[Rfam]
RNA sequence: AUAUAUAAGUAUUUUGUACCGUAGACCGCAGGGGUGGCAUGCCGCUUAAUGAUCCUGCCGAGGACAAGACGAUCUUUUCGUAUUGAAGAAGACGACUUUUUCUGCCCUCGGGUCUCCAAUGUAGACCGGGGGCUUUUUAUAUCGGUAU
Dot-bracket structure: ...........................(((((((((......))).......)))))).............................................((((((((.(..........).))))))))...............

Background:
The record is a 148-nucleotide RNA sequence from Sporosarcina pasteurii, which matches "Ribosomal protein L10 leader" in Rfam. The base pairs follow the family's consensus structure, which was predicted with CMfinder. Gene Ontology term of the family: regulation of gene expression. Rfam's curators write: This family is a putative r-protein leader autoregulatory structure found in B. subtilis and other low-GC Gram-positive bacteria. It is located in the 5' untranslated regions of mRNAs encoding ribosomal proteins L10 and L12 (rplJ-rplL). A Rho-independent transcription terminator structure that is probably involved in regulation is included at the 3' end. A reference for the family is Zengel and Lindahl (1994), "Diverse mechanisms for regulating ribosomal protein synthesis in Escherichia coli", Prog Nucleic Acid Res Mol Biol. The organism belongs to Sporosarcina, within Bacteria. It scores 74 bits against the family's covariance model.